[Rfam]
RNA sequence: GGGGAGCAUCACAGAGAUGAGAUGUUUACUUGAUCCAAUCUUCCUACAUAAAUCUCUGUUUUUUCCUGCUUGUAAAAAUUGAGCAAGUUUAUGCGAGUCUCAUAUCUCCAGAUACAUGA
Numbered sequence: 001g002g003g004g005a006g007c008a009u010c011a012c013a014g015a016g017a018u019g020a021g022a023u024g025u026u027u028a029c030u031u032g033a034u035c036c037a038a039u040c041u042u043c044c045u046a047c048a049u050a051a052a053u054c055u056c057u058g059u060u061u062u063u064u065c066c067u068g069c070u071u072g073u074a075a076a077a078a079u080u081g082a083g084c085a086a087g088u089u090u091a092u093g094c095g096a097g098u099c100u101c102a103u104a105u106c107u108c109c110a111g112a113u114a115c116a117u118g119a
Stems, first nucleotide, its partner, number of pairs: 001031003005027001006025005055112003068098007077089002079086001
Dot-bracket structure: (((.((((((..........))))).).))).......................(((..........(((((((..(((......).))..)))))))...........))).......
Notes:
Rfam assigns this 119-nucleotide RNA from Hibiscus syriacus to the family "Small nucleolar RNA snoR104". Gene Ontology terms of the family: nucleolus and RNA processing. Rfam classes the family as an H/ACA-box small nucleolar RNA. Pairs were carried over by alignment from the consensus structure, which was predicted with WAR. NCBI's taxonomy places the organism under Eukaryota, Spermatophyta, eudicotyledons, Gunneridae, Hibiscus.